[Rfam]
RNA sequence: GGGAGAUGAUGAUGAAAAUAUAUUGGUCCGUGUUUCUGAUUACACCGUGACUGAUACUUUAGCACAAAUCUCUGAUCCC
Number, nucleotide and partner (000 for none) at each position: 001g079002g078003g077004a076005g000006a000007u000008g000009a000010u000011g000012a000013u000014g000015a000016a000017a000018a000019u000020a000021u000022a000023u000024u000025g000026g000027u000028c000029c000030g000031u000032g000033u000034u000035u000036c000037u000038g000039a000040u000041u000042a000043c000044a000045c000046c000047g000048u000049g000050a000051c000052u000053g000054a000055u000056a000057c000058u000059u000060u000061a000062g000063c000064a000065c000066a000067a000068a000069u000070c000071u000072c000073u000074g000075a000076u004077c003078c002079c001
RNA: Small nucleolar RNA SNORD18